[Rfam]
RNA sequence: CAGAUACUUUUUGGGGUAAGGGCUUCCUGGCUACUGGUUCAAGAAACAGCAAGCCCAGACCGCAAAAAGACCUG
Numbered sequence: 001c002a003g004a005u006a007c008u009u010u011u012u013g014g015g016g017u018a019a020g021g022g023c024u025u026c027c028u029g030g031c032u033a034c035u036g037g038u039u040c041a042a043g044a045a046a047c048a049g050c051a052a053g054c055c056c057a058g059a060c061c062g063c064a065a066a067a068a069g070a071c072c073u074g
Stems, first nucleotide, its partner, number of pairs: 007069007015061003020056004025051001027049002

Rfam assigns this 74-nucleotide sequence from Sinocyclocheilus grahami to the family "mir-129 microRNA precursor family". A reference for the family is Lagos-Quintana et al. (2002), "Identification of tissue-specific microRNAs from mouse", Curr Biol. The base pairs follow the family's consensus structure, which was predicted with RNAalifold. The match comes from Rfam's covariance-model search (50 bits). Gene Ontology terms of the family: synapse, long-term synaptic potentiation and RISC complex.